Annotation:
Shown here is a 101-nucleotide sequence from Sporosarcina sp. HYO08, a member of the family "SAM riboswitch aptamer (S box leader)". The base pairs follow the family's consensus structure, which is taken from published work. Lineage of the source: Bacteria > Bacilli > Caryophanales > Caryophanaceae > Sporosarcina.
RNA sequence: UUCUUAUCCAGAGAGGUGGAGGGACUGGCCCUAUGAAACCUCAGCAACAGACUUGUACAGAACUGUGCUAAUUCCAGUAGCGAAAAGCUUGGAGAUAAGAA
Numbered sequence: 001u002u003c004u005u006a007u008c009c010a011g012a013g014a015g016g017u018g019g020a021g022g023g024a025c026u027g028g029c030c031c032u033a034u035g036a037a038a039c040c041u042c043a044g045c046a047a048c049a050g051a052c053u054u055g056u057a058c059a060g061a062a063c064u065g066u067g068c069u070a071a072u073u074c075c076a077g078u079a080g081c082g083a084a085a086a087g088c089u090u091g092g093a094g095a096u097a098a099g100a101a
Base pairs, nucleotide, nucleotide: 001101002100003099004098005097006096007095008094013042014041015040016039017038021031022030023029025077026076027075028074043069044068045067046066048065049064052060053059073093079089080088081087
A search with the family's covariance model found it, with a score of 85 bits.